Shown here is a 134-nucleotide RNA sequence from Microcebus murinus, a member of the family "Small nucleolar RNA SNORA71". It scores 126 bits against the family's covariance model. Lineage of the source: Eukaryota > Chordata > Sarcopterygii > Euarchontoglires > Microcebus. The family's RNA type in Rfam is H/ACA-box small nucleolar RNA. The members of this family belong to the H/ACA class of snoRNAs which bind a number of proteins (including dyskerin, Gar1p and Nop10p) to form snoRNP complexes.
[Rfam]
RNA sequence: CCCUGCAUUCGAAAGUGAUCAUGGGCUGCCCGUGCCCAGGUCAUUGGUAGUGCAGAGAGAGGAAUCACUGAAAACAUUUCCCCAUGUUUGGAGGGUCCAUUCCUGUCUCUUCCAAACCCUGGGACUUUCCCACA
Number, nucleotide and partner (000 for none) at each position: 001c057002c000003c055004u054005g053006c052007a051008u050009u049010c000011g000012a000013a000014a045015g044016u043017g042018a041019u040020c039021a000022u000023g037024g036025g035026c034027u000028g000029c000030c000031c000032g000033u000034g026035c025036c024037c023038a000039g020040g019041u018042c017043a016044u015045u014046g000047g000048u000049a009050g008051u007052g006053c005054a004055g003056a000057g001058a000059g000060a000061g000062g000063a000064a000065u000066c000067a000068c000069u000070g129071a128072a127073a126074a000075c000076a000077u000078u000079u000080c000081c000082c000083c000084a000085u000086g117087u116088u115089u114090g113091g111092a110093g109094g108095g107096u000097c000098c000099a000100u000101u000102c000103c000104u000105g000106u000107c095108u094109c093110u092111u091112c000113c090114a089115a088116a087117c086118c000119c000120u000121g000122g000123g000124a000125c000126u073127u072128u071129c070130c000131c000132a000133c000134a000